[Rfam]
A member of the RNA family "Bacterial large subunit ribosomal RNA" from Candidatus Carsonella ruddii, 60 nucleotides of a longer RNA. Pairs were carried over by alignment from the consensus structure, which is taken from published work. The sequence is in the family's curated seed alignment.
RNA sequence: CGUUGUGUAGAUCAAAGAAUAAUUAUAAAAAUAUAAUUUGGAGAUAUCACAAGUGCGAAU
Numbered sequence: 001c002g003u004u005g006u007g008u009a010g011a012u013c014a015a016a017g018a019a020u021a022a023u024u025a026u027a028a029a030a031a032u033a034u035a036a037u038u039u040g041g042a043g044a045u046a047u048c049a050c051a052a053g054u055g056c057g058a059a060u
Base pairs, nucleotide, nucleotide: 001055003052004051005050006049007048011045012044013043021038022037023036024035025034026033027032